[Rfam]
RNA sequence: UGUUGUCUUCGGACAACCACCAAUGCUCAGUGGGUCUGUGAUGAGCGCUUUCGGGUGACCCUGCUGUUAAUUGACAGCCACUAAUGAUCCCGUUACCUGUGAGGAUCGCCUUCGGGUGGUAACAAAAGAACACUUCCUGAGCCUGAGAGGGAGUACACAGUUUGACUGUGUGGUACAUCU
Numbered sequence: 001u002g003u004u005g006u007c008u009u010c011g012g013a014c015a016a017c018c019a020c021c022a023a024u025g026c027u028c029a030g031u032g033g034g035u036c037u038g039u040g041a042u043g044a045g046c047g048c049u050u051u052c053g054g055g056u057g058a059c060c061c062u063g064c065u066g067u068u069a070a071u072u073g074a075c076a077g078c079c080a081c082u083a084a085u086g087a088u089c090c091c092g093u094u095a096c097c098u099g100u101g102a103g104g105a106u107c108g109c110c111u112u113c114g115g116g117u118g119g120u121a122a123c124a125a126a127a128g129a130a131c132a133c134u135u136c137c138u139g140a141g142c143c144u145g146a147g148a149g150g151g152a153g154u155a156c157a158c159a160g161u162u163u164g165a166c167u168g169u170g171u172g173g174u175a176c177a178u179c180u
Stems, first nucleotide, its partner, number of pairs: 002017006025046005032061005047056003086107005092123006108117003132154005138177002141174003157169003
This 180-nucleotide sequence from Serratia proteamaculans belongs to the Rfam family "STAXI RNA". Rfam's curators put it in the seed alignment. Pairs were carried over by alignment from the consensus structure, which is taken from published work.